Rfam assigns this 119-nucleotide sequence from Gordonia iterans to the family "Glycine riboswitch aptamer". Rfam describes the family as follows. This family represents the bacterial glycine riboswitch. Gene Ontology term of the family: glycine biosynthetic process.

RNA sequence: CGGCGUCUCUGGAAAGCGACGGGUCCGCCCGUCCGCCCACGGUGAAAGGCGAGGUCGUCGACGGCCGCCGCUGAAUCUCUCAGGCAUCGCGCUCGCCGCGAUAGGACAGAGGGGGAGGG
Numbered sequence: 001c002g003g004c005g006u007c008u009c010u011g012g013a014a015a016g017c018g019a020c021g022g023g024u025c026c027g028c029c030c031g032u033c034c035g036c037c038c039a040c041g042g043u044g045a046a047a048g049g050c051g052a053g054g055u056c057g058u059c060g061a062c063g064g065c066c067g068c069c070g071c072u073g074a075a076u077c078u079c080u081c082a083g084g085c086a087u088c089g090c091g092c093u094c095g096c097c098g099c100g101a102u103a104g105g106a107c108a109g110a111g112g113g114g115g116a117g118g119g
Stems, first nucleotide, its partner, number of pairs: 004114001006112006018033004035085003039080001042079001044077001048072004